[Rfam]
RNA sequence: GAGGCAUGAUGAAGAGUCUGAACAGUCUGAUCAUCUCUGAAGACUGAUAAGAUCCAACUCUGACCUCAGUAGAGUC
Numbered sequence: 001g002a003g004g005c006a007u008g009a010u011g012a013a014g015a016g017u018c019u020g021a022a023c024a025g026u027c028u029g030a031u032c033a034u035c036u037c038u039g040a041a042g043a044c045u046g047a048u049a050a051g052a053u054c055c056a057a058c059u060c061u062g063a064c065c066u067c068a069g070u071a072g073a074g075u076c
Stems, first nucleotide, its partner, number of pairs: 001067004

The record is a 76-nucleotide RNA sequence from Erinaceus europaeus, which matches "Small nucleolar RNA SNORD19" in Rfam. Rfam links the family to the GO terms nucleolus and RNA processing. For this family Rfam cites "RNomics: an experimental approach that identifies 201 candidates for novel, small, non-messenger RNAs in mouse" (Huttenhofer et al., EMBO J, 2001). It is one of the family's seed sequences. The pairing is the family consensus, mapped onto this sequence.